[Rfam]
RNA sequence: GCGUAGGCAUGGUUGAGUGGUUACUUCGGAAACUGUUAUCUCUUAUUGACCACUGACACAGCCCUGUGUUUUU
Numbered sequence: 001g002c003g004u005a006g007g008c009a010u011g012g013u014u015g016a017g018u019g020g021u022u023a024c025u026u027c028g029g030a031a032a033c034u035g036u037u038a039u040c041u042c043u044u045a046u047u048g049a050c051c052a053c054u055g056a057c058a059c060a061g062c063c064c065u066g067u068g069u070u071u072u073u
Stems, first nucleotide, its partner, number of pairs: 002068006012057004017053004026049004
RNA: Vault RNA